RNA: PyrR binding site
RNA sequence: AACCCUUUUUAAUAGGUAGUCCUGAGAGGCUGACAAAGGGGAGUAAGCUUAGACGAGUCAUGCCUUUAUAGGUAUUAUCAGGUCUUAAGCAAACCUCUUUGUGCACAAGACAAAGAGGUUUUUUAUAU
Numbered sequence: 001a002a003c004c005c006u007u008u009u010u011a012a013u014a015g016g017u018a019g020u021c022c023u024g025a026g027a028g029g030c031u032g033a034c035a036a037a038g039g040g041g042a043g044u045a046a047g048c049u050u051a052g053a054c055g056a057g058u059c060a061u062g063c064c065u066u067u068a069u070a071g072g073u074a075u076u077a078u079c080a081g082g083u084c085u086u087a088a089g090c091a092a093a094c095c096u097c098u099u100u101g102u103g104c105a106c107a108a109g110a111c112a113a114a115g116a117g118g119u120u121u122u123u124u125a126u127a128u
Stems, first nucleotide, its partner, number of pairs: 003041007017032005052083001054081001057078002060075006089123001091121012